[Rfam]
RNA sequence: CCCUCCUACAAAGGUGUGCCUGUGGUUUCCCUAACAUUGGACACAAGAAUUGGAGGCAAAGAAAUGUGGACUUGGAGAAGUCUUGGGCCAGCUUGCUCCCUACAGGCUCAAGAUCAACCAUCCCACAUAG
Numbered sequence: 001c002c003c004u005c006c007u008a009c010a011a012a013g014g015u016g017u018g019c020c021u022g023u024g025g026u027u028u029c030c031c032u033a034a035c036a037u038u039g040g041a042c043a044c045a046a047g048a049a050u051u052g053g054a055g056g057c058a059a060a061g062a063a064a065u066g067u068g069g070a071c072u073u074g075g076a077g078a079a080g081u082c083u084u085g086g087g088c089c090a091g092c093u094u095g096c097u098c099c100c101u102a103c104a105g106g107c108u109c110a111a112g113a114u115c116a117a118c119c120a121u122c123c124c125a126c127a128u129a130g
Base pairs, nucleotide, nucleotide: 002056003055004054005053006052015045016044017043018042020040021039024031025030068123069122070121072120090108091107092106093105094104095103

This 130-nucleotide RNA sequence from Molossus molossus belongs to the Rfam family "Small nucleolar RNA SNORA38". From the family's description: ACA38 is a member of the H/ACA class of snoRNA that guide the sites of modification of uridines to pseudouridines. The family has 25 seed sequences and 628 matches in Rfam 15.1. Gene Ontology terms of the family: RNA processing, Cajal body and nucleolus.